[Rfam]
RNA: Small nucleolar RNA SNORD97
RNA sequence: ACACCUGUGAUUAUAAAAAGACGCGUUAUUCUGAGGGACUCCACUGGAUGGCAGUUUUCCUACUUUCUGUUCUUUUGUUUCUUCCUGUUCUUUCUCUCCUCCUUAUGCUUCUCUUCUGUCCCUCACUCUUAAACUGCCAGCCAGUCCGCUGACUGCGAUUAUGAGAUAUGAGGGUGU
Number, nucleotide and partner (000 for none) at each position: 001a177002c176003a175004c174005c173006u172007g000008u000009g000010a000011u000012u000013a000014u000015a000016a000017a000018a000019a000020g000021a000022c000023g000024c000025g000026u000027u000028a000029u000030u000031c000032u000033g000034a086035g085036g084037g083038a000039c000040u000041c000042c000043a000044c000045u000046g000047g000048a000049u000050g000051g000052c000053a000054g000055u000056u000057u000058u000059c000060c000061u000062a000063c000064u000065u000066u000067c000068u000069g000070u000071u000072c000073u000074u000075u000076u000077g000078u000079u000080u000081c000082u000083u037084c036085c035086u034087g000088u000089u000090c000091u000092u000093u000094c000095u000096c000097u000098c000099c000100u000101c000102c000103u000104u000105a000106u000107g000108c000109u000110u000111c000112u000113c000114u000115u000116c000117u000118g000119u000120c000121c000122c000123u000124c000125a000126c000127u000128c000129u000130u000131a000132a000133a000134c000135u000136g000137c000138c000139a000140g000141c000142c000143a000144g000145u000146c000147c000148g000149c000150u000151g000152a000153c000154u000155g000156c000157g000158a000159u000160u000161a000162u000163g000164a000165g000166a000167u000168a000169u000170g000171a000172g006173g005174g004175u003176g002177u001